[Rfam]
RNA: Group II catalytic intron D1-D4-6
RNA sequence: GGAAUCCAGUCUGGUAAAACCUAGCAAGUUGCCAGUACCAAGACCUUGGAGCACCAAAGGCUAACAAUGGUGUUUAAGCGUAGGACAGGAAACAGGAACGCCGUAAUGCGUAAGCGUGAAGUGAUUGAGCUCCGUUAGAAUUAUCGAUUGUGUGGGGUGGUCUACUACUUUCUUGGGUCACCAACAAGGAUUAGUCGCUAAAGCGAGACUAUGAAAACACACCGGAGUCCUAGAGCA
Numbered sequence: 001g002g003a004a005u006c007c008a009g010u011c012u013g014g015u016a017a018a019a020c021c022u023a024g025c026a027a028g029u030u031g032c033c034a035g036u037a038c039c040a041a042g043a044c045c046u047u048g049g050a051g052c053a054c055c056a057a058a059g060g061c062u063a064a065c066a067a068u069g070g071u072g073u074u075u076a077a078g079c080g081u082a083g084g085a086c087a088g089g090a091a092a093c094a095g096g097a098a099c100g101c102c103g104u105a106a107u108g109c110g111u112a113a114g115c116g117u118g119a120a121g122u123g124a125u126u127g128a129g130c131u132c133c134g135u136u137a138g139a140a141u142u143a144u145c146g147a148u149u150g151u152g153u154g155g156g157g158u159g160g161u162c163u164a165c166u167a168c169u170u171u172c173u174u175g176g177g178u179c180a181c182c183a184a185c186a187a188g189g190a191u192u193a194g195u196c197g198c199u200a201a202a203g204c205g206a207g208a209c210u211a212u213g214a215a216a217a218c219a220c221a222c223c224g225g226a227g228u229c230c231u232a233g234a235g236c237a
Stems, first nucleotide, its partner, number of pairs: 011035004018030003022206001024204002038089002042086001044084003047080002049075008059065001127229001129228006150222005156182003161176002164173001192211005